[Rfam]
RNA sequence: AAGAAAUUAAUGCCGAAUCCAGCUUGUCAGAAAUGGCUGGUACGGGGGACUAAUAUGGGGUGAAUGUUUUGCGGGUGCACGCGAAACUAGGGGAGUCCUCAACCCGAAUCCGACAACUAACUCCGGAGGCAUAAGGAGGAAGCAAC
Numbered sequence: 001a002a003g004a005a006a007u008u009a010a011u012g013c014c015g016a017a018u019c020c021a022g023c024u025u026g027u028c029a030g031a032a033a034u035g036g037c038u039g040g041u042a043c044g045g046g047g048g049a050c051u052a053a054u055a056u057g058g059g060g061u062g063a064a065u066g067u068u069u070u071g072c073g074g075g076u077g078c079a080c081g082c083g084a085a086a087c088u089a090g091g092g093g094a095g096u097c098c099u100c101a102a103c104c105c106g107a108a109u110c111c112g113a114c115a116a117c118u119a120a121c122u123c124c125g126g127a128g129g130c131a132u133a134a135g136g137a138g139g140a141a142g143c144a145a146c
Stems, first nucleotide, its partner, number of pairs: 011131004019040006043125005058111003066087008090105003